[Rfam]
RNA: Caenorhabditis sRNA ceN23-1
Organism: Caenorhabditis japonica
RNA sequence: GCCUACCUUACUCGAAUAACCCGUCGAUGAAGACUACUAAAUGACGAAUCCUAAUAACCAUUGCGGAUAUGAGGCAUUUGUCUGAGCGGG
Numbered sequence: 001g002c003c004u005a006c007c008u009u010a011c012u013c014g015a016a017u018a019a020c021c022c023g024u025c026g027a028u029g030a031a032g033a034c035u036a037c038u039a040a041a042u043g044a045c046g047a048a049u050c051c052u053a054a055u056a057a058c059c060a061u062u063g064c065g066g067a068u069a070u071g072a073g074g075c076a077u078u079u080g081u082c083u084g085a086g087c088g089g090g
Stems, first nucleotide, its partner, number of pairs: 021089004043082007050074003054070003058066002